[Rfam]
RNA sequence: AUCUUAUCAAGAGCGGUGGAGGGAACUGGCCCAAAGAUGCCCGGCAACCUGCUUGAAGCAAGGUGCUAAUUCCAGCAAAAUGACUCUCAUUUUGGUAGAUAAGGU
Numbered sequence: 001a002u003c004u005u006a007u008c009a010a011g012a013g014c015g016g017u018g019g020a021g022g023g024a025a026c027u028g029g030c031c032c033a034a035a036g037a038u039g040c041c042c043g044g045c046a047a048c049c050u051g052c053u054u055g056a057a058g059c060a061a062g063g064u065g066c067u068a069a070u071u072c073c074a075g076c077a078a079a080a081u082g083a084c085u086c087u088c089a090u091u092u093u094g095g096u097a098g099a100u101a102a103g104g105u
Base pairs, nucleotide, nucleotide: 001105002104003103004102005101006100007099008098013042015041016040017039021032022031023030026075027074028073029072043067044066045065046064048063049062050060051059052058053057071097076094077093078092079091080090081089
SAM riboswitch aptamer (S box leader): a 105-nucleotide sequence from Bacillus taeanensis. NCBI's taxonomy places the organism under Bacteria, Bacillati, Bacillota, Caryophanales, Bacillus. A search with the family's covariance model found it, with a score of 86 bits. Rfam links the family to the GO term regulation of gene expression. The base pairs follow the family's consensus structure, which is taken from published work.